[Rfam]
RNA: chrB-a RNA
RNA sequence: CCCAUGGGGAAGCGAUCUCCCCACGAGGCGACAUGCCCAAGAAUCGCGUCCGGUUUUCCACCAAGGGCGCACCAUG
Numbered sequence: 001c002c003c004a005u006g007g008g009g010a011a012g013c014g015a016u017c018u019c020c021c022c023a024c025g026a027g028g029c030g031a032c033a034u035g036c037c038c039a040a041g042a043a044u045c046g047c048g049u050c051c052g053g054u055u056u057u058c059c060a061c062c063a064a065g066g067g068c069g070c071a072c073c074a075u076g
Stems, first nucleotide, its partner, number of pairs: 005023006046070006